[Rfam]
RNA sequence: GAAUAACCCCCAUAAUCUAUCUGUAUAACCUUAAGAAUACGGCUUAAGGGUCUCUACCAGGAACCGAAAAAUCCUGAUUACAGAAAGCGAUCACUCGUUU
Numbered sequence: 001g002a003a004u005a006a007c008c009c010c011c012a013u014a015a016u017c018u019a020u021c022u023g024u025a026u027a028a029c030c031u032u033a034a035g036a037a038u039a040c041g042g043c044u045u046a047a048g049g050g051u052c053u054c055u056a057c058c059a060g061g062a063a064c065c066g067a068a069a070a071a072u073c074c075u076g077a078u079u080a081c082a083g084a085a086a087g088c089g090a091u092c093a094c095u096c097g098u099u100u
Stems, first nucleotide, its partner, number of pairs: 018086001020084006029049007058076005
The record is a 100-nucleotide RNA sequence from Planococcus rifietoensis, which matches "Purine riboswitch aptamer" in Rfam. Rfam's curators write: Riboswitches are metabolite binding domains within certain messenger RNAs that serve as precision sensors for their corresponding targets. The base pairs follow the family's consensus structure, which is taken from published work.